[Rfam]
RNA sequence: GAGCUGUGAAGAAAUAUUUAAAGGAAUCUGAGAUUCUUCUGAAGUUGUAAGAUCCAACUCUGAGCUCAUUCUUUCU
Numbered sequence: 001g002a003g004c005u006g007u008g009a010a011g012a013a014a015u016a017u018u019u020a021a022a023g024g025a026a027u028c029u030g031a032g033a034u035u036c037u038u039c040u041g042a043a044g045u046u047g048u049a050a051g052a053u054c055c056a057a058c059u060c061u062g063a064g065c066u067c068a069u070u071c072u073u074u075c076u
Base pairs, nucleotide, nucleotide: 001067002066003065004064
The record is a 76-nucleotide RNA from Callipepla squamata, which matches "Small nucleolar RNA SNORD19" in Rfam. Rfam links the family to the GO terms nucleolus and RNA processing. The match comes from Rfam's covariance-model search (46 bits). The family is grouped with related families in Rfam's "SNORD19 clan".